The family of this 69-nucleotide RNA sequence from Triplophysa tibetana is "mir-24 microRNA precursor family". This family represents the microRNA (miRNA) mir-24 family. miRNAs are transcribed as ~70nt precursors (modelled here) and subsequently processed by the Dicer enzyme to give a ~22nt product. Lineage of the source: Eukaryota > Teleostomi > Euteleostomi > Clupeocephala > Triplophysa.

[Rfam]
RNA sequence: GUCUCCUGUGCCUGCUGCGCUGAUAAUCAGUAGACAACUGCAGCUGGCUCAGUUCAGCAGGAACAGGGG
Dot-bracket structure: ..((((.((.(((.(((.(((((...(((((...........))))).))))).))).))).)).))))